The family of this 96-nucleotide sequence is "wcaG RNA". The sequence is in the family's curated seed alignment. Pairs were carried over by alignment from the consensus structure, which is taken from published work.
RNA sequence: AUAGGUUUCUUGCUUAUCCUAAAAGUAAGUGGUGCGGAUGGGUAACUCCCGCCCUGUUUCUUGCUUCAGGAUAAAGAGCAAGUGGCGUGCAUGUAA
Number, nucleotide and partner (000 for none) at each position: 001a000002u000003a000004g000005g000006u000007u000008u000009c029010u028011u027012g026013c025014u024015u023016a000017u000018c000019c000020u000021a000022a000023a015024a014025g013026u012027a011028a010029g009030u000031g000032g000033u000034g000035c000036g000037g000038a000039u051040g050041g049042g048043u000044a000045a000046c000047u000048c042049c041050c040051g039052c000053c070054c069055u068056g067057u000058u000059u000060c082061u081062u080063g079064c078065u077066u000067c056068a055069g054070g053071a000072u000073a000074a000075a000076g000077a065078g064079c063080a062081a061082g060083u000084g000085g000086c000087g000088u000089g000090c000091a000092u000093g000094u000095a000096a000